A member of the RNA family "MIR7502 microRNA precursor family" from Gossypium schwendimanii, 145 nucleotides long. The source organism's lineage runs through Eukaryota, Streptophytina, Tracheophyta, Euphyllophyta and Gossypium.
RNA sequence: UAUUAAAAAUUUCAUAUAUUUUUACUGUUUAAACUUGACAUAAUUAAUGAAAUAAUUAAACAAUAACACAUGACAUGUCAUGCGUACCUUAUAUUGACAUACAAUGAUUAACUUUUAACGAUAAAAAUGGAUGAAAAUUUUAACG
Numbered sequence: 001u002a003u004u005a006a007a008a009a010u011u012u013c014a015u016a017u018a019u020u021u022u023u024a025c026u027g028u029u030u031a032a033a034c035u036u037g038a039c040a041u042a043a044u045u046a047a048u049g050a051a052a053u054a055a056u057u058a059a060a061c062a063a064u065a066a067c068a069c070a071u072g073a074c075a076u077g078u079c080a081u082g083c084g085u086a087c088c089u090u091a092u093a094u095u096g097a098c099a100u101a102c103a104a105u106g107a108u109u110a111a112c113u114u115u116u117a118a119c120g121a122u123a124a125a126a127a128u129g130g131a132u133g134a135a136a137a138u139u140u141u142a143a144c145g
Stems, first nucleotide, its partner, number of pairs: 003143006010136006018128007026120001028118002031115003
Dot-bracket structure: ..((((((.((((((..(((((((.(.((.(((...............................................................................))).)).).)))))))..)))))).))))))..

Rfam links the family to the GO terms RISC complex and miRNA-mediated post-transcriptional gene silencing. Pairs were carried over by alignment from the consensus structure, which was predicted with RNAalifold.